Record summary: A member of the RNA family "L4-Archaeoglobi ribosomal protein leades" from Haladaptatus litoreus, 100 nucleotides long. The family's consensus secondary structure is taken from published work. The organism belongs to Haladaptatus, within Archaea. The match comes from Rfam's covariance-model search (72 bits). A reference for the family is Eckert and Weinberg (2020), "Discovery of 20 novel ribosomal leader candidates in bacteria and archaea", BMC Microbiol.

RNA sequence: CUGAAGGGCGCGUCCGGGUCAAUUGCGGAUUGCAACACCCGAUUUCGCUCGUCGUACCGUCGCAAAUGACGGUCGGCGAGGGGGAGCGCGUUACCGUCAG
Numbered sequence: 001c002u003g004a005a006g007g008g009c010g011c012g013u014c015c016g017g018g019u020c021a022a023u024u025g026c027g028g029a030u031u032g033c034a035a036c037a038c039c040c041g042a043u044u045u046c047g048c049u050c051g052u053c054g055u056a057c058c059g060u061c062g063c064a065a066a067u068g069a070c071g072g073u074c075g076g077c078g079a080g081g082g083g084g085a086g087c088g089c090g091u092u093a094c095c096g097u098c099a100g
Base pairs, nucleotide, nucleotide: 001100002099003098004097008091009090010089011088012087013086015041016040017039018038023035024034025033026032027031043085044084045083046082048080049079050078051077052076053075